Rfam assigns this 132-nucleotide sequence from Musa balbisiana to the family "U11 spliceosomal RNA".
It is annotated as a spliceosomal small nuclear RNA.
A search with the family's covariance model found it, with a score of 73 bits.
[Rfam]
RNA sequence: UAAAAGGGUCGGUUGGCUAUGUAUGCCACGCCCACCACUUGUGUCGGUGGGUGCUGUAUGGCUAUCAAGACAUAUGGCCGACAUAAUUUGUGGAACUCUCUACAGGGUUGGCUCGCUUGGCCGACCCUCCAA
Numbered sequence: 001u002a003a004a005a006g007g008g009u010c011g012g013u014u015g016g017c018u019a020u021g022u023a024u025g026c027c028a029c030g031c032c033c034a035c036c037a038c039u040u041g042u043g044u045c046g047g048u049g050g051g052u053g054c055u056g057u058a059u060g061g062c063u064a065u066c067a068a069g070a071c072a073u074a075u076g077g078c079c080g081a082c083a084u085a086a087u088u089u090g091u092g093g094a095a096c097u098c099u100c101u102a103c104a105g106g107g108u109u110g111g112c113u114c115g116c117u118u119g120g121c122c123g124a125c126c127c128u129c130c131a132a
Base pairs, nucleotide, nucleotide: 008082009081010080011079012078014028015027016026017025029053030052031051032050033049034048035047036046037044038043054077055076056075057074058073059072060071102128106126107125108124109123110122111121112120113119

Its family is annotated with U11 snRNP, mRNA 5'-splice site recognition and pre-mRNA 5'-splice site binding in the Gene Ontology.